[Rfam]
RNA: Archaeal large subunit ribosomal RNA, nucleotides 10 to 561
Organism: Thermoplasmatales archaeon SCGC AB-539-C06
RNA sequence: AAUAUUAAGCCAUUUGGUGGAUUGCUCGGCUCGAGUGCUGAAGAAGGUCGUGCCAAGCCGCGAUAUUACUCCGUGUAGGCGCAAGGAGCCUAUGAUGCGGAGAUUACCUAAUGGGACAUCCUAUCGCUUAGGCGAUAUUCACACUAGUGAAGAGGAACCUGCCGAAUUGAAACAUCUGAGUAGGCAGAGGAAAAGAAAUCAAUAGAGAUUGGGUUAGUAAAGGCGAUCGAACACCCAAUAGGGCAAACCGAAUCCUCAUGCGAUGAGUAUGAGGAGAUGUGGAGUUUGGAUUCAUUUACUCCCUAACUGGUUAACUUGAAGUCCCCUGGAAUGGGGCGCCAUAGAGGGUGAUAGCCCUGUAAAGGUAAGCCAGAGGGAGAUUUUUGAAUAUCCAGAGUAACGUGCGUUGGAUAUCGCGCGUGAAUGUGGGAGACAUAAACUUCCAACCCUAAAUACAACUCGAGACCGAUAGCGCAGUAGUAGCGUGAGUGAAAGUUGCAAAGUACCCCUUGCGGGAGGUGCAAAGAGCAUGAAACUAAAUGGUUACAGACU
Numbered sequence: 001a002a003u004a005u006u007a008a009g010c011c012a013u014u015u016g017g018u019g020g021a022u023u024g025c026u027c028g029g030c031u032c033g034a035g036u037g038c039u040g041a042a043g044a045a046g047g048u049c050g051u052g053c054c055a056a057g058c059c060g061c062g063a064u065a066u067u068a069c070u071c072c073g074u075g076u077a078g079g080c081g082c083a084a085g086g087a088g089c090c091u092a093u094g095a096u097g098c099g100g101a102g103a104u105u106a107c108c109u110a111a112u113g114g115g116a117c118a119u120c121c122u123a124u125c126g127c128u129u130a131g132g133c134g135a136u137a138u139u140c141a142c143a144c145u146a147g148u149g150a151a152g153a154g155g156a157a158c159c160u161g162c163c164g165a166a167u168u169g170a171a172a173c174a175u176c177u178g179a180g181u182a183g184g185c186a187g188a189g190g191a192a193a194a195g196a197a198a199u200c201a202a203u204a205g206a207g208a209u210u211g212g213g214u215u216a217g218u219a220a221a222g223g224c225g226a227u228c229g230a231a232c233a234c235c236c237a238a239u240a241g242g243g244c245a246a247a248c249c250g251a252a253u254c255c256u257c258a259u260g261c262g263a264u265g266a267g268u269a270u271g272a273g274g275a276g277a278u279g280u281g282g283a284g285u286u287u288g289g290a291u292u293c294a295u296u297u298a299c300u301c302c303c304u305a306a307c308u309g310g311u312u313a314a315c316u317u318g319a320a321g322u323c324c325c326c327u328g329g330a331a332u333g334g335g336g337c338g339c340c341a342u343a344g345a346g347g348g349u350g351a352u353a354g355c356c357c358u359g360u361a362a363a364g365g366u367a368a369g370c371c372a373g374a375g376g377g378a379g380a381u382u383u384u385u386g387a388a389u390a391u392c393c394a395g396a397g398u399a400a401c402g403u404g405c406g407u408u409g410g411a412u413a414u415c416g417c418g419c420g421u422g423a424a425u426g427u428g429g430g431a432g433a434c435a436u437a438a439a440c441u442u443c444c445a446a447c448c449c450u451a452a453a454u455a456c457a458a459c460u461c462g463a464g465a466c467c468g469a470u471a472g473c474g475c476a477g478u479a480g481u482a483g484c485g486u487g488a489g490u491g492a493a494a495g496u497u498g499c500a501a502a503g504u505a506c507c508c509c510u511u512g513c514g515g516g517a518g519g520u521g522c523a524a525a526g527a528g529c530a531u532g533a534a535a536c537u538a539a540a541u542g543g544u545u546a547c548a549g550a551c552u
Stems, first nucleotide, its partner, number of pairs: 008545010023530001024496002028467002030464006036457002045109004049062003069102006078090003113122003138151005158189001159187005169176002199206002210237005221227001240450004248282003258270004291388004300379001302377001315364003321337001323336004340344001346358003400421007428444005483490002